[Rfam]
Nucleotides: 093
Stems, first nucleotide, its partner, number of pairs: 001093002004090005013043005021032003026081004044073004049069002052064003077085001
Number, partner (000 for none) and nucleotide at each position: 001093u002092u003000g004090c005089c006088a007087u008086c009000c010000c011000g012000a013043g014042c015041g016040g017039c018000u019000g020000a021032g022031a023030g024000a025000c026081c027080u028079g029078g030023c031022u032021c033000u034000a035000c036000g037000a038000c039017g040016c041015c042014g043013c044073a045072g046071c047070a048000a049069c050068c051000a052064c053063c054062c055000c056000u057000c058000c059000a060000c061000g062054g063053g064052g065000g066000c067000a068050g069049g070047u071046g072045c073044u074000u075000c076000c077085g078029c079028c080027a081026g082000g083000a084000u085077c086008g087007a088006u089005g090004g091000a092002g093001g